[Rfam]
This 332-nucleotide RNA sequence from Desulfonispora thiosulfatigenes belongs to the Rfam family "Group I catalytic intron". A search with the family's covariance model found it, with a score of 96 bits. A reference for the family is Cech (1990), "Self-splicing of group I introns", Annu Rev Biochem. Rfam links the family to the GO term Group I intron splicing. Taxonomically the source falls in Desulfonispora thiosulfatigenes (Bacteria, Bacillati, Eubacteriales, Desulfonispora). Group I catalytic introns are large self-splicing ribozymes.
RNA sequence: UUAAGGUAGUUAUUUACAGGGUCCCUUAAGGGGUAACCUUUAAGUGCAAAUCGGGUGAAUUGCUGGAACUUCCUUAGAGCUAACCUCCCUACAACGUAACCUGAAAAGGUAAGCGUGAAAGGUUAAAAAGAGGUAGAUUGGAUAAUCAGCAGCCGAGCUCCUGUUCCGAAAGGAUGGAGAAGGUUCAACGACUAGGAUGUACCACCUAAAGCAAUAGGCUAUGGUGAUGAGAUCCGUAGGGGUAAGAGGUUCCCCGAAGUACCCGACAAUCAUUAGUACUCAAAGAAAGAAAAUGGUUGAAGAUAUAGUCUGGCAGUUAUCGAAAGAUAAUU
Numbered sequence: 001u002u003a004a005g006g007u008a009g010u011u012a013u014u015u016a017c018a019g020g021g022u023c024c025c026u027u028a029a030g031g032g033g034u035a036a037c038c039u040u041u042a043a044g045u046g047c048a049a050a051u052c053g054g055g056u057g058a059a060u061u062g063c064u065g066g067a068a069c070u071u072c073c074u075u076a077g078a079g080c081u082a083a084c085c086u087c088c089c090u091a092c093a094a095c096g097u098a099a100c101c102u103g104a105a106a107a108g109g110u111a112a113g114c115g116u117g118a119a120a121g122g123u124u125a126a127a128a129a130g131a132g133g134u135a136g137a138u139u140g141g142a143u144a145a146u147c148a149g150c151a152g153c154c155g156a157g158c159u160c161c162u163g164u165u166c167c168g169a170a171a172g173g174a175u176g177g178a179g180a181a182g183g184u185u186c187a188a189c190g191a192c193u194a195g196g197a198u199g200u201a202c203c204a205c206c207u208a209a210a211g212c213a214a215u216a217g218g219c220u221a222u223g224g225u226g227a228u229g230a231g232a233u234c235c236g237u238a239g240g241g242g243u244a245a246g247a248g249g250u251u252c253c254c255c256g257a258a259g260u261a262c263c264c265g266a267c268a269a270u271c272a273u274u275a276g277u278a279c280u281c282a283a284a285g286a287a288a289g290a291a292a293a294u295g296g297u298u299g300a301a302g303a304u305a306u307a308g309u310c311u312g313g314c315a316g317u318u319a320u321c322g323a324a325a326g327a328u329a330a331u332u
Stems, first nucleotide, its partner, number of pairs: 005025001009022003013018001029039003051266004056261002061151006071142003152184002159177002165172001188311001190310005269297006277289001317330005